[Rfam]
RNA: PyrR binding site
RNA sequence: AUAACUUUUAAACUAGUCCAGAGAGGCUAGCAAGGUUGAAAUCAGGAAAAAUUGAUUCUAUUUUUACUGACAGGAUUUUCUGUCAGUAAAAGUGAAUUUGUUUUGAUACUUUUUACACUUGCUAGGAUUCUUGGCAAGUGUUUUUUAU
Numbered sequence: 001a002u003a004a005c006u007u008u009u010a011a012a013c014u015a016g017u018c019c020a021g022a023g024a025g026g027c028u029a030g031c032a033a034g035g036u037u038g039a040a041a042u043c044a045g046g047a048a049a050a051a052u053u054g055a056u057u058c059u060a061u062u063u064u065u066a067c068u069g070a071c072a073g074g075a076u077u078u079u080c081u082g083u084c085a086g087u088a089a090a091a092g093u094g095a096a097u098u099u100g101u102u103u104u105g106a107u108a109c110u111u112u113u114u115a116c117a118c119u120u121g122c123u124a125g126g127a128u129u130c131u132u133g134g135c136a137a138g139u140g141u142u143u144u145u146u147a148u
Stems, first nucleotide, its partner, number of pairs: 003037006013030006061092014115141011